[Rfam]
RNA: Small nucleolar RNA Z43
Organism: Pycnococcus provasolii
RNA sequence: UGUCAAGGAUGUAUUUUUAACCUUUAUAGGUCUCGUUCGGCGUAAGUGCGAAAACAACAUAGAAUCAAAUCACUCAAUAUUUUCAAAGCCUUGCCGACAAAGUCUGAUAUAUCACCACCCAUCGACUGAGACA
Numbered sequence: 001u002g003u004c005a006a007g008g009a010u011g012u013a014u015u016u017u018u019a020a021c022c023u024u025u026a027u028a029g030g031u032c033u034c035g036u037u038c039g040g041c042g043u044a045a046g047u048g049c050g051a052a053a054a055c056a057a058c059a060u061a062g063a064a065u066c067a068a069a070u071c072a073c074u075c076a077a078u079a080u081u082u083u084c085a086a087a088g089c090c091u092u093g094c095c096g097a098c099a100a101a102g103u104c105u106g107a108u109a110u111a112u113c114a115c116c117a118c119c120c121a122u123c124g125a126c127u128g129a130g131a132c133a
Base pairs, nucleotide, nucleotide: 001133002132003131004130050092051091